[Rfam]
RNA sequence: GUGUAAGAUGAAUCACUUAUGUCUACAUACAUAUAAUCAGUCGUGAACUGAUUAUAUCAUCGCGUUUGUUUAUAUGCAAUAUAGAAGAACCUGAGAUUAUUAUCCAGGUUCUUUUUUGA
Numbered sequence: 001g002u003g004u005a006a007g008a009u010g011a012a013u014c015a016c017u018u019a020u021g022u023c024u025a026c027a028u029a030c031a032u033a034u035a036a037u038c039a040g041u042c043g044u045g046a047a048c049u050g051a052u053u054a055u056a057u058c059a060u061c062g063c064g065u066u067u068g069u070u071u072a073u074a075u076g077c078a079a080u081a082u083a084g085a086a087g088a089a090c091c092u093g094a095g096a097u098u099a100u101u102a103u104c105c106a107g108g109u110u111c112u113u114u115u116u117u118g119a
Base pairs, nucleotide, nucleotide: 033073034072035071036070038068039065042062043061083115084114085113086112087111088110089109090108091107092106093105
RNA: Bacillus sRNA ncr1015
Organism: Paenibacillus silvestris